Alphaproteobacterial ar14: a 119-nucleotide sequence from Mesorhizobium sp. YM1C-6-2. Taxonomically the source falls in Mesorhizobium (Bacteria, Pseudomonadati, Alphaproteobacteria, Phyllobacteriaceae). Rfam links the family to the GO term biological process involved in symbiotic interaction. The base pairs follow the family's consensus structure. About the family: Smr14C2 was renamed NfeR1 (Nodule Formation Efficiency RNA) highly expressed in salt stress and during the symbiotic interaction on legume roots.
RNA sequence: GAAUUUCGUCAAAGCCGACCUCCUCCCCGGCGAUGACGAAUAGGGCGGUCCUACCCUCCUCCCGGGACCGUCCACCAAAACGACACCCGCCGGAUCUCCUCCCCCGGCGGGUGUUGUCU
Numbered sequence: 001g002a003a004u005u006u007c008g009u010c011a012a013a014g015c016c017g018a019c020c021u022c023c024u025c026c027c028c029g030g031c032g033a034u035g036a037c038g039a040a041u042a043g044g045g046c047g048g049u050c051c052u053a054c055c056c057u058c059c060u061c062c063c064g065g066g067a068c069c070g071u072c073c074a075c076c077a078a079a080a081c082g083a084c085a086c087c088c089g090c091c092g093g094a095u096c097u098c099c100u101c102c103c104c105c106g107g108c109g110g111g112u113g114u115u116g117u118c119u
Base pairs, nucleotide, nucleotide: 007038008037009036011034014031015030016029017028043073044072045071046070047069048068049067050066051065083114084113085112086111087110088109089108090107091106092105093104